[Rfam]
RNA sequence: CAUCGCGAUGCUCCUUAUCUCAAGGAGACAUUGUGAUGAGGAUACUGUCGAAACGCGAACUGAAGGAGUUGGUCUUGUAUUCACCGCAACACGUCGCGCGAUUGGAGAAGGCGGGUCAGUUUCCCAAGCGGGUACAACUCGGUCCCAAUCGUGUUGGCUGGAUUGAGGAUGAGGUGCUGGACUGGCUGCGAAUUCGGGUAGAGUUGCGAAAGUAACCGCACAAACUCCGAACAGAGCGAUGGCGGCUCGGGUUGGCCAAAAUCCC
Numbered sequence: 001c002a003u004c005g006c007g008a009u010g011c012u013c014c015u016u017a018u019c020u021c022a023a024g025g026a027g028a029c030a031u032u033g034u035g036a037u038g039a040g041g042a043u044a045c046u047g048u049c050g051a052a053a054c055g056c057g058a059a060c061u062g063a064a065g066g067a068g069u070u071g072g073u074c075u076u077g078u079a080u081u082c083a084c085c086g087c088a089a090c091a092c093g094u095c096g097c098g099c100g101a102u103u104g105g106a107g108a109a110g111g112c113g114g115g116u117c118a119g120u121u122u123c124c125c126a127a128g129c130g131g132g133u134a135c136a137a138c139u140c141g142g143u144c145c146c147a148a149u150c151g152u153g154u155u156g157g158c159u160g161g162a163u164u165g166a167g168g169a170u171g172a173g174g175u176g177c178u179g180g181a182c183u184g185g186c187u188g189c190g191a192a193u194u195c196g197g198g199u200a201g202a203g204u205u206g207c208g209a210a211a212g213u214a215a216c217c218g219c220a221c222a223a224a225c226u227c228c229g230a231a232c233a234g235a236g237c238g239a240u241g242g243c244g245g246c247u248c249g250g251g252u253u254g255g256c257c258a259a260a261a262u263c264c265c
Stems, first nucleotide, its partner, number of pairs: 001038010012028002015026002018023001058199001060197002065189001067187009078176004082171002084168002087165003092160002095157001098154002102151001104149001110144003114139003122132003201248007219241002225236003249265003